[Rfam]
Notes: This 99-nucleotide RNA sequence from Avibacterium volantium belongs to the Rfam family "Bacterial small signal recognition particle RNA".
RNA sequence: UUCUCGGUUCCUCGCAACGAGGUCUGGUUUACCCGGUCAGGUUCGGAAGAAAGCAGCCAAAGUCAGAUUUUUCGUGUGCCGAGAUCAAGCUGGGAAGGU
Numbered sequence: 001u002u003c004u005c006g007g008u009u010c011c012u013c014g015c016a017a018c019g020a021g022g023u024c025u026g027g028u029u030u031a032c033c034c035g036g037u038c039a040g041g042u043u044c045g046g047a048a049g050a051a052a053g054c055a056g057c058c059a060a061a062g063u064c065a066g067a068u069u070u071u072u073c074g075u076g077u078g079c080c081g082a083g084a085u086c087a088a089g090c091u092g093g094g095a096a097g098g099u
Base pairs, nucleotide, nucleotide: 004093005092006091007090008089011083012082013081014080015076017075018074019073020072021071022070023067024066025065026064027063028062029061035058036057037056042051043050044049

Taxonomically the source falls in Avibacterium (Bacteria, Pseudomonadati, Pseudomonadota, Gammaproteobacteria). The family's consensus secondary structure is taken from published work. A search with the family's covariance model found it, with a score of 65 bits.